Rfam assigns this 119-nucleotide RNA from Paenibacillus oceani to the family "Bacillus sRNA ncr1015". Pairs were carried over by alignment from the consensus structure, which is taken from published work.
[Rfam]
RNA sequence: GUGUAAGAUAAGAUAAUUAUGUCUGAAAAACAACAAAAAGUUGUAAGCUGAUUAUAUCAUUGUGUUUGUUUAUGUGCAAUAGUAAAGAACCUGGAGAGCGUGCCCAGGUUCUUUUUUGU
Dot-bracket structure: ................................(.(((.(..((.................))..)...))).)..........(((((((((((.........))))))))))).....
Numbered sequence: 001g002u003g004u005a006a007g008a009u010a011a012g013a014u015a016a017u018u019a020u021g022u023c024u025g026a027a028a029a030a031c032a033a034c035a036a037a038a039a040g041u042u043g044u045a046a047g048c049u050g051a052u053u054a055u056a057u058c059a060u061u062g063u064g065u066u067u068g069u070u071u072a073u074g075u076g077c078a079a080u081a082g083u084a085a086a087g088a089a090c091c092u093g094g095a096g097a098g099c100g101u102g103c104c105c106a107g108g109u110u111c112u113u114u115u116u117u118g119u
Stems, first nucleotide, its partner, number of pairs: 033073001035071003039065001042062002084114011